[Rfam]
RNA: mir-1 microRNA precursor family
Organism: Salvelinus namaycush
RNA sequence: GCCUGGGAUACAUACUUCUUUACAUUCCAUAGUUCCUCUUGUUCAUAUGGACGCAUAAAGAAGUAUGUCCCCCAAGC
Numbered sequence: 001g002c003c004u005g006g007g008a009u010a011c012a013u014a015c016u017u018c019u020u021u022a023c024a025u026u027c028c029a030u031a032g033u034u035c036c037u038c039u040u041g042u043u044c045a046u047a048u049g050g051a052c053g054c055a056u057a058a059a060g061a062a063g064u065a066u067g068u069c070c071c072c073c074a075a076g077c
Base pairs, nucleotide, nucleotide: 007071010068011067012066013065014064015063016062017061018060019059020058021057022056027050028049029048030047031046